RNA sequence: ACCCCCUGGCAAUGGGCAAGGAGACACCUGAUUGGUGGUGUUGCUCUUAUACCCAUCAGGGGCAAAGCAGAUGUACGGUCAUUAGUUCAUCCUAGCUUGGUGCCUGUGUCGAUGGCCAGAGCUGUUACAUGCCCGAGGCACAUAA
Numbered sequence: 001a002c003c004c005c006c007u008g009g010c011a012a013u014g015g016g017c018a019a020g021g022a023g024a025c026a027c028c029u030g031a032u033u034g035g036u037g038g039u040g041u042u043g044c045u046c047u048u049a050u051a052c053c054c055a056u057c058a059g060g061g062g063c064a065a066a067g068c069a070g071a072u073g074u075a076c077g078g079u080c081a082u083u084a085g086u087u088c089a090u091c092c093u094a095g096c097u098u099g100g101u102g103c104c105u106g107u108g109u110c111g112a113u114g115g116c117c118a119g120a121g122c123u124g125u126u127a128c129a130u131g132c133c134c135g136a137g138g139c140a141c142a143u144a145a
Base pairs, nucleotide, nucleotide: 003062004061005060006059007058008057014053015052019048020047021046023042024041025040026039027038028037085139086138087137099133100132101131105129106128107127110124111123113121
Shown here is a 145-nucleotide RNA sequence from Myotis davidii, a member of the family "Small nucleolar RNA SNORA48". The snoRNA ACA 48 has been identified to guide pseudouridylation of the residue U3797 in the 28S rRNA subunit. Rfam links the family to the GO terms nucleolus and RNA processing.